Notes: The family of this 85-nucleotide RNA sequence from Holothuria leucospilota is "mir-184 microRNA precursor family". The family's consensus secondary structure was predicted with PFOLD. Taxonomically the source falls in Holothuria (Eukaryota, Opisthokonta, Metazoa, Echinozoa). A reference for the family is Chen et al. (2005), "The developmental miRNA profiles of zebrafish as determined by small RNA cloning", Genes Dev.
[Rfam]
RNA sequence: CUUUCUAUGACUCCUUGUCACUUCUCCUCCCAGCUAUCGAAUUUGAAUCUUGCUGGACGGAGAACUGAUAAGGGCUGGUAGAAAA
Number, nucleotide and partner (000 for none) at each position: 001c000002u000003u000004u000005c000006u000007a000008u000009g000010a000011c000012u074013c073014c072015u071016u070017g069018u068019c067020a066021c000022u064023u063024c062025u061026c060027c059028u000029c000030c056031c055032a000033g000034c000035u000036a000037u000038c000039g000040a000041a000042u000043u000044u000045g000046a000047a000048u000049c000050u000051u000052g000053c000054u000055g031056g030057a000058c000059g027060g026061a025062g024063a023064a022065c000066u020067g019068a018069u017070a016071a015072g014073g013074g012075c000076u000077g000078g000079u000080a000081g000082a000083a000084a000085a000